Cyano-1 RNA: a 69-nucleotide RNA sequence. The sequence is in the family's curated seed alignment. The family's consensus secondary structure is taken from published work. It is annotated as a small RNA.
[Rfam]
RNA sequence: AAAUGUGUGAGGAGUGCUGUACGCCUCUUCAGGGUCGAAACAAGGACAGACUCCUGAAUGCUUACCACC
Number, nucleotide and partner (000 for none) at each position: 001a000002a000003a000004u000005g000006u000007g000008u000009g000010a000011g000012g000013a000014g000015u000016g000017c000018u000019g000020u064021a063022c000023g061024c060025c000026u000027c000028u000029u057030c056031a055032g054033g053034g051035u050036c049037g000038a000039a000040a000041c000042a000043a000044g000045g000046a000047c000048a000049g036050a035051c034052u000053c033054c032055u031056g030057a029058a000059u000060g024061c023062u000063u021064a020065c000066c000067a000068c000069c000